The family of this 119-nucleotide RNA from Streptomyces chumphonensis is "SAM (S-adenosyl methionine) riboswitch aptamer". Taxonomically the source falls in Streptomyces (Bacteria, Actinomycetota, Actinomycetes, Kitasatosporales). The match comes from Rfam's covariance-model search (100 bits). The base pairs follow the family's consensus structure, which is taken from published work. The literature on the family includes a 2008 paper in RNA by Weinberg et al., "The aptamer core of SAM-IV riboswitches mimics the ligand-binding site of SAM-I riboswitches".
[Rfam]
RNA sequence: GGUCACGAGUGACAGCGACCAUGGCCCCGGCCCGCUGUCCGGCAACCCUCCAACCGUGGCGGGGUGCCCCGGGUGAUGACCGGGCCGCACGACAGCAAGGUCGGCGGCAAGCGCGGUCG
Numbered sequence: 001g002g003u004c005a006c007g008a009g010u011g012a013c014a015g016c017g018a019c020c021a022u023g024g025c026c027c028c029g030g031c032c033c034g035c036u037g038u039c040c041g042g043c044a045a046c047c048c049u050c051c052a053a054c055c056g057u058g059g060c061g062g063g064g065u066g067c068c069c070c071g072g073g074u075g076a077u078g079a080c081c082g083g084g085c086c087g088c089a090c091g092a093c094a095g096c097a098a099g100g101u102c103g104g105c106g107g108c109a110a111g112c113g114c115g116g117u118c119g
Stems, first nucleotide, its partner, number of pairs: 001081004009040001011039006023032002041068003046064003050059002084108005090103004